[Rfam]
RNA sequence: ACAAGCUUGCAACCAUAGCAGAAGUGUUCACAAUGCAGCCCUGUCAGAUUUCAAAUGAAUCUGUGAAUUCUGCU
Numbered sequence: 001a002c003a004a005g006c007u008u009g010c011a012a013c014c015a016u017a018g019c020a021g022a023a024g025u026g027u028u029c030a031c032a033a034u035g036c037a038g039c040c041c042u043g044u045c046a047g048a049u050u051u052c053a054a055a056u057g058a059a060u061c062u063g064u065g066a067a068u069u070c071u072g073c074u
Stems, first nucleotide, its partner, number of pairs: 009041001013038001017074007024036003045063007
Shown here is a 74-nucleotide RNA from Crocodylus porosus, a member of the family "Mammalian CPEB3 ribozyme". The base pairs follow the family's consensus structure, which is taken from published work.